Background: A member of the RNA family "Small nucleolar RNA SNORA15" from Perca fluviatilis, 139 nucleotides long.
RNA sequence: GCAUGGCCGAAUUCUGUUUUACUUUUGAAAUAGUAAAUGCAGUCAGACACCAUGCUAAAUUAUUGUUUUCACACACUGACCCAACAACAGGAUGAGAGUGCUAAUUAUGUGCUUUGAUCUUGUCAGAGUGAAUACAGAA
Numbered sequence: 001g002c003a004u005g006g007c008c009g010a011a012u013u014c015u016g017u018u019u020u021a022c023u024u025u026u027g028a029a030a031u032a033g034u035a036a037a038u039g040c041a042g043u044c045a046g047a048c049a050c051c052a053u054g055c056u057a058a059a060u061u062a063u064u065g066u067u068u069u070c071a072c073a074c075a076c077u078g079a080c081c082c083a084a085c086a087a088c089a090g091g092a093u094g095a096g097a098g099u100g101c102u103a104a105u106u107a108u109g110u111g112c113u114u115u116g117a118u119c120u121u122g123u124c125a126g127a128g129u130g131a132a133u134a135c136a137g138a139a
Base pairs, nucleotide, nucleotide: 001055002054003053004052005051006050014042015041016040017039019037068132069131070130074128076126077125078124079123080122089121090120091119092118093117095115096114097113098112099111100110101109
About this RNA
From the family's description: ACA15 is a member of the H/ACA class of snoRNA that guide the sites of modification of uridines to pseudouridines. The family's consensus secondary structure was predicted with RNAfold. It scores 66 bits against the family's covariance model.